[Rfam]
RNA sequence: GUGUUUUUCAUAGUAUUAGAUUUAAGGUUAAACAAAGAUUGGCUGUCUGGGAAGAUAGCCUUUUUUGUAC
Numbered sequence: 001g002u003g004u005u006u007u008u009c010a011u012a013g014u015a016u017u018a019g020a021u022u023u024a025a026g027g028u029u030a031a032a033c034a035a036a037g038a039u040u041g042g043c044u045g046u047c048u049g050g051g052a053a054g055a056u057a058g059c060c061u062u063u064u065u066u067g068u069a070c
Stems, first nucleotide, its partner, number of pairs: 041060007

The family of this 70-nucleotide RNA sequence from Bacteroides fluxus is "Bacteroidetes FopS (family of paralogous sRNAs)".
The RNA-binding protein RbpB and BTncRNA_FopS sRNA are involved in the post-transcription regulation of polysaccharide utilisation loci (PUL). FopS sRNAs function as post-transcriptional repressors by binding to the vicinity of the start codon of the first mRNA of target PUL polycistrons, typically corresponding to the cognate SusC homolog, impeding translation of the respective glycan transporter.
On this family, see Ruttiger et al., Nat Commun 2025: "The global RNA-binding protein RbpB is a regulator of polysaccharide utilization in Bacteroides thetaiotaomicron".